Glycine riboswitch aptamer: an 82-nucleotide sequence from Enterocloster bolteae. The pairing is the family consensus, mapped onto this sequence.
RNA sequence: UUGAUGAAUUCGGGAGAGAUUACCGCCAGGUAACGCCGAAGGGGAUGCGCAAACUCUCAGGCAAAAGAAUCGAAUUCGGACG
Numbered sequence: 001u002u003g004a005u006g007a008a009u010u011c012g013g014g015a016g017a018g019a020u021u022a023c024c025g026c027c028a029g030g031u032a033a034c035g036c037c038g039a040a041g042g043g044g045a046u047g048c049g050c051a052a053a054c055u056c057u058c059a060g061g062c063a064a065a066a067g068a069a070u071c072g073a074a075u076u077c078g079g080a081c082g
Base pairs, nucleotide, nucleotide: 006077007076008075009074010073011072012071013070020033021032022031023030035062036061037060038058039057042056043055044054
Dot-bracket structure: .....((((((((......((((......)))).(((((..(((.........))))).))).......)))))))).....